[Rfam]
RNA sequence: GGCUGUUCUCAGGGCGGGGCGGAAUUCCCCACCGGCGGUUACAGCCCGCGAGCGCCUUUCGCAGCGAAAGGGUCAGCAGAUCAGGUGAAACUCCUGGGCCGACGGUCACAGUCCGGAUGAAAGAGAGCGUGC
Number, nucleotide and partner (000 for none) at each position: 001g000002g000003c000004u129005g128006u127007u126008c125009u124010c123011a000012g000013g000014g000015c000016g000017g029018g028019g027020c000021g000022g000023a000024a000025u000026u000027c019028c018029c017030c000031a112032c111033c101034g100035g049036c048037g047038g046039u000040u000041a000042c000043a000044g099045c098046c038047c037048g036049c035050g000051a000052g077053c076054g000055c000056c000057u000058u000059u000060c000061g000062c000063a000064g000065c000066g000067a000068a000069a000070g000071g000072g000073u000074c000075a000076g053077c052078a000079g000080a000081u097082c096083a095084g094085g093086u000087g000088a000089a000090a000091c000092u000093c085094c084095u083096g082097g081098g045099c044100c034101g033102a000103c115104g114105g113106u000107c000108a000109c000110a000111g032112u031113c105114c104115g103116g000117a000118u000119g000120a000121a000122a000123g010124a009125g008126a007127g006128c005129g004130u000131g000132c000